This 322-nucleotide RNA from Imshaugia aleurites belongs to the Rfam family "A. fumigatus sRNA Afu_309". The base pairs follow the family's consensus structure, which was predicted with WAR. Rfam classes the family as a small RNA. NCBI's taxonomy places the organism under Eukaryota, Fungi, saccharomyceta, Lecanorineae, Imshaugia.
[Rfam]
RNA sequence: CUCCCAAAAAAACCACAAGACCUGUGUCAGCCUCCCGGAGCCCUGUUUCCCCCGGGAUCAGGAGUCAUCCGGUCGAGACUUGACAACUCGACGUCAAGGAGCCGCUUGUUUUCCCCUCUCCGGAGGUAAAAAACCCCCCAUAGCGUCAAUCUUCCGGUCGACAGAUCUCAAAUCGAAUCGGCGCCAACCGGCCGAAGCCUGAGCUCCCGUUCAGUGUGAGCUCGGUGGAGGCGCGGGGAGCUGCCGCGGACGUCAUAUUCCACCACGUUCCUGAGGGGACGUCGUCUGAUGAGGGUUGGGUAAAACGUGAGUGCGGAUUUUU
Dot-bracket structure: .................(((.(((((((((.(((((((((.((((..(((....))).))))...).)))))..))).)).))).......((((..((.((........................................)).))........)).)))))).)))............(......((.(.....(((.(((((((........).))))))))).......).))....)........(.((((.....(((....(((.....((((...)))).....)))...))).....))))..).........